[Rfam]
RNA sequence: CAAUGGCUAUGAAACGAGAGGUUGCGACACACCCGGCCGCUUUGCCACGGCGAGUGUGACGGAAAUUUUCGUGGAGCAAUGUCUAAUUUCUAAGACUAGGCGAAGGAGGGAAAAUGAUGGCAA
Numbered sequence: 001c002a003a004u005g006g007c008u009a010u011g012a013a014a015c016g017a018g019a020g021g022u023u024g025c026g027a028c029a030c031a032c033c034c035g036g037c038c039g040c041u042u043u044g045c046c047a048c049g050g051c052g053a054g055u056g057u058g059a060c061g062g063a064a065a066u067u068u069u070c071g072u073g074g075a076g077c078a079a080u081g082u083c084u085a086a087u088u089u090c091u092a093a094g095a096c097u098a099g100g101c102g103a104a105g106g107a108g109g110g111a112a113a114a115u116g117a118u119g120g121c122a123a
Base pairs, nucleotide, nucleotide: 014072015071016070018069019068020067021066025061026060028058029057030056031055032054080122081121082120083119086118087117088116
The family of this 123-nucleotide RNA sequence from Carnobacterium antarcticum is "S10-Clostridia ribosomal protein leader". The organism belongs to Carnobacterium, within Bacteria. A search with the family's covariance model found it, with a score of 38 bits.